[Rfam]
RNA sequence: ACCAUCCAUUUCUUGGGUUUGUGCUACUGUUCAAUGAGUGCCUAGUGAGGGCAGUACCACUAACUCCUGCACAACAUUGAAAUCAGCUAGAGCUUUGCUUUACCUUAGUGCAAUUUUUGGGAAA
Numbered sequence: 001a002c003c004a005u006c007c008a009u010u011u012c013u014u015g016g017g018u019u020u021g022u023g024c025u026a027c028u029g030u031u032c033a034a035u036g037a038g039u040g041c042c043u044a045g046u047g048a049g050g051g052c053a054g055u056a057c058c059a060c061u062a063a064c065u066c067c068u069g070c071a072c073a074a075c076a077u078u079g080a081a082a083u084c085a086g087c088u089a090g091a092g093c094u095u096u097g098c099u100u101u102a103c104c105u106u107a108g109u110g111c112a113a114u115u116u117u118u119g120g121g122a123a124a
Stems, first nucleotide, its partner, number of pairs: 007017001009015001021060003026055007038046002082109002085106001088102006
RNA: U4atac minor spliceosomal RNA
Organism: Macaca fascicularis